This 91-nucleotide RNA sequence from Azorhizobium caulinodans belongs to the Rfam family "Rhodo-rpoB RNA".
The source organism's lineage runs through Bacteria, Pseudomonadota, Alphaproteobacteria, Xanthobacteraceae and Azorhizobium caulinodans.
It scores 34 bits against the family's covariance model.
By type it is a cis-regulatory element.

Nucleotides: 091
Stems, first nucleotide, its partner, number of pairs: 002041001004039002010030002013027005063091001065089003069084004
Number, partner (000 for none) and nucleotide at each position: 001000c002041c003000a004039u005038c006000g007000a008000g009000a010030g011029c012000u013027u014026c015025g016024c017023g018000g019000c020000g021000g022000a023017c024016g025015u026014g027013g028000c029011g030010c031000a032000u033000g034000a035000a036000u037000u038005g039004a040000a041002g042000a043000a044000c045000c046000c047000c048000c049000u050000c051000a052000c053000c054000u055000c056000c057000c058000u059000g060000c061000g062000c063091u064000c065089g066088g067087c068000u069084g070083u071082g072081g073000a074000g075000a076000c077000c078000c079000u080000g081072c082071c083070g084069c085000u086000c087067g088066c089065c090000a091063a
The base pairs follow the family's consensus structure, which is taken from published work.